[Rfam]
RNA: Makes More Granules Regulator RNA (mmgR)
RNA sequence: UGUCGGUGCCUUUCGGGGCAUUUCCUCCCUAGUCUUUGGCCGCGCUUUCUUCAUUGGAGCGCGGCUCUUUUUAUCUGGUGA
Numbered sequence: 001u002g003u004c005g006g007u008g009c010c011u012u013u014c015g016g017g018g019c020a021u022u023u024c025c026u027c028c029c030u031a032g033u034c035u036u037u038g039g040c041c042g043c044g045c046u047u048u049c050u051u052c053a054u055u056g057g058a059g060c061g062c063g064g065c066u067c068u069u070u071u072u073a074u075c076u077g078g079u080g081a
Base pairs, nucleotide, nucleotide: 008019009018010017011016038066039065040064041063042062043061044060045059046058047057048056